[Rfam]
RNA sequence: GGCAAUUUUAUCGAUAUAGAACACUCAUGUCGAUAAAAUGAUUUGAACCCUUU
Numbered sequence: 001g002g003c004a005a006u007u008u009u010a011u012c013g014a015u016a017u018a019g020a021a022c023a024c025u026c027a028u029g030u031c032g033a034u035a036a037a038a039u040g041a042u043u044u045g046a047a048c049c050c051u052u053u
Stems, first nucleotide, its partner, number of pairs: 011033007

Overview:
Plastid-atpF group II-D1 intron: a 53-nucleotide RNA from Erythropalum scandens. Plastid atpF is a non-coding RNA (ncRNA) recognised in plastids. It has been reported in the intron group II-D1 region of ATP synthase (atpF) genes. The organism belongs to Erythropalum, within Eukaryota. For this family Rfam cites "Retrograde signaling in plants: A critical review focusing on the GUN pathway and beyond" (Richter et al., Plant Commun, 2023).